[Rfam]
The record is a 108-nucleotide RNA from Brachybacterium muris, which matches "TPP riboswitch aptamer (THI element)" in Rfam. Rfam's curators write: Vitamin B(1) in its active form thiamin pyrophosphate (TPP) is an essential coenzyme that is synthesised by coupling of pyrimidine and thiazole moieties in bacteria. The previously detected thiamin-regulatory element, thi box was extended, resulting in a new, highly conserved RNA secondary structure, the THI element, which is widely distributed in eubacteria and also occurs in some archaea. Analysis of operon structures identified a large number of new candidate thiamin-regulated genes, mostly transporters, in various prokaryotic organisms.
RNA sequence: AUCUGCUGACAGGGGAGCACCACUGGGGUGCUGAGAGUGCGCCACGUGGCGCAGACCCUCGAACCUGAUCCGGCUAACACCGGCGUAGGGAGUCGGGAUUUCCGUGCG
Numbered sequence: 001a002u003c004u005g006c007u008g009a010c011a012g013g014g015g016a017g018c019a020c021c022a023c024u025g026g027g028g029u030g031c032u033g034a035g036a037g038u039g040c041g042c043c044a045c046g047u048g049g050c051g052c053a054g055a056c057c058c059u060c061g062a063a064c065c066u067g068a069u070c071c072g073g074c075u076a077a078c079a080c081c082g083g084c085g086u087a088g089g090g091a092g093u094c095g096g097g098a099u100u101u102c103c104g105u106g107c108g
Base pairs, nucleotide, nucleotide: 006096007095008094009093010092011059012058013057014056017031018030019029020028021027038053039052040051041050042049064089065088066087067086070083071082072081073080